[Rfam]
RNA sequence: AUGACAAACGUAAAAGUUCACCGUAUAUUCCUGGGGAUUGGGCGCAGGAGUCUCUACAUGGCGGCCGUAACCGUCAUUCUACGAUGGAAGCCUUUCUUCAU
Numbered sequence: 001a002u003g004a005c006a007a008a009c010g011u012a013a014a015a016g017u018u019c020a021c022c023g024u025a026u027a028u029u030c031c032u033g034g035g036g037a038u039u040g041g042g043c044g045c046a047g048g049a050g051u052c053u054c055u056a057c058a059u060g061g062c063g064g065c066c067g068u069a070a071c072c073g074u075c076a077u078u079c080u081a082c083g084a085u086g087g088a089a090g091c092c093u094u095u096c097u098u099c100a101u
Base pairs, nucleotide, nucleotide: 018087019086020085022083023082024081025080029049030048031047032046033045035043058077059076060075061074062073063072064071
RNA: Purine riboswitch aptamer